[Rfam]
RNA sequence: ACAGUACAAACUGAGCAGGCCACGGAUUCCUCUGGAAUCCAUGGAGCCGGGCCGCAGUUGCGGCAGCAGAUGAUCUCCUGUACAUCUGUGGGACAGUU
Numbered sequence: 001a002c003a004g005u006a007c008a009a010a011c012u013g014a015g016c017a018g019g020c021c022a023c024g025g026a027u028u029c030c031u032c033u034g035g036a037a038u039c040c041a042u043g044g045a046g047c048c049g050g051g052c053c054g055c056a057g058u059u060g061c062g063g064c065a066g067c068a069g070a071u072g073a074u075c076u077c078c079u080g081u082a083c084a085u086c087u088g089u090g091g092g093a094c095a096g097u098u
Stems, first nucleotide, its partner, number of pairs: 010097004016092001018048003022042001024040004051064005066089006
Dot-bracket structure: .........((((..(.(((.(.((((.........)))).)...)))..(((((....))))).((((((............))))))..).)))).
This 98-nucleotide sequence from Pseudoflavonifractor capillosus belongs to the Rfam family "NiCo (Nickel/Cobalt) riboswitch aptamer".
The literature on the family includes a 2015 paper in Mol Cell by Furukawa et al., "Bacterial riboswitches cooperatively bind Ni(2+) or Co(2+) ions and control expression of heavy metal transporters".
Rfam links the family to the GO terms cobalt ion binding and metal ion homeostasis.
The source organism's lineage runs through Bacteria, Bacillati, Bacillota, Oscillospiraceae and Pseudoflavonifractor capillosus.
The sequence is in the family's curated seed alignment.
The base pairs follow the family's consensus structure, which is taken from published work.